[Rfam]
RNA: Bacterial RNase P class A
Organism: Anaeromassilibacillus sp. An172
RNA sequence: CGAGUAAGCUGAACAGCUGCGGACAAACGCCGAAAGGCUUUGCCCGAGGAAAGUCCGGGCUCCACAGAGCAAGAAUAACGGCUAACGGCCGCCGGGGGCGACCCUAGGGAAAGUGCAACAGAAAGCAACCGCCCGAUCAUCUUUUGAUUGUCGGGUAAGGGUGGAAAGGCGAGGUAAGAGCUCACCGUGGCUGCGGAGACGCAGCUGACGUGUAAACCCUAUUCGGAGCAACACCGUGGAAAGGAACAUAUACGUCUGCUCGGCGUGUUCCAAUGGAGGUGGCGUUGAGCAGUGUCGGCAACGCACUGCCAAGAUAGAUGGCUGUUCACGACAAAACCCGGCUUAUAGGUUUACUCGCAUA
Numbered sequence: 001c002g003a004g005u006a007a008g009c010u011g012a013a014c015a016g017c018u019g020c021g022g023a024c025a026a027a028c029g030c031c032g033a034a035a036g037g038c039u040u041u042g043c044c045c046g047a048g049g050a051a052a053g054u055c056c057g058g059g060c061u062c063c064a065c066a067g068a069g070c071a072a073g074a075a076u077a078a079c080g081g082c083u084a085a086c087g088g089c090c091g092c093c094g095g096g097g098g099c100g101a102c103c104c105u106a107g108g109g110a111a112a113g114u115g116c117a118a119c120a121g122a123a124a125g126c127a128a129c130c131g132c133c134c135g136a137u138c139a140u141c142u143u144u145u146g147a148u149u150g151u152c153g154g155g156u157a158a159g160g161g162u163g164g165a166a167a168g169g170c171g172a173g174g175u176a177a178g179a180g181c182u183c184a185c186c187g188u189g190g191c192u193g194c195g196g197a198g199a200c201g202c203a204g205c206u207g208a209c210g211u212g213u214a215a216a217c218c219c220u221a222u223u224c225g226g227a228g229c230a231a232c233a234c235c236g237u238g239g240a241a242a243g244g245a246a247c248a249u250a251u252a253c254g255u256c257u258g259c260u261c262g263g264c265g266u267g268u269u270c271c272a273a274u275g276g277a278g279g280u281g282g283c284g285u286u287g288a289g290c291a292g293u294g295u296c297g298g299c300a301a302c303g304c305a306c307u308g309c310c311a312a313g314a315u316a317g318a319u320g321g322c323u324g325u326u327c328a329c330g331a332c333a334a335a336a337c338c339c340g341g342c343u344u345a346u347a348g349g350u351u352u353a354c355u356c357g358c359a360u361a
Stems, first nucleotide, its partner, number of pairs: 001357010011346001012326007020046003024042004051344003055341005060228004069260001073224005079091004093107001094105004108219002113217002115213003129160002131156007139148003168186002171183003187209001188207008232281004243271005252266005289309006296303002
Dot-bracket structure: ((((((((((((((((((.(((.((((...........)))).)))....[[[.[[[[[((((.....[...(((((.((((.....)))).(((((....)))).)((...(((((...........(((((((((.(((....))).)))))))..)).......((.(((.......))).))(((((((((....)))))))).).)))..)))))))))))))...((((.......(((((....(((((...].))))))))))......)))).......((((((.((....))))))))..........)))))))..........]]]]]]]].).))))))))))....